[Rfam]
Nucleotides: 070
Base pairs, nucleotide, nucleotide: 003066004065006063007062008061009060015056016055017054018053022048023047024046027043
Number, partner (000 for none) and nucleotide at each position: 001000a002000a003066g004065c005000a006063g007062c008061a009060u010000c011000a012000g013000u014000a015056c016055a017054g018053c019000g020000g021000c022048g023047g024046c025000a026000g027043c028000g029000c030000a031000g032000c033000a034000u035000a036000c037000a038000c039000c040000a041000a042000u043027g044000g045000c046024g047023u048022c049000g050000u051000c052000a053018g054017c055016u056015g057000g058000c059000g060009a061008u062007g063006c064000g065004g066003c067000g068000a069000g070000a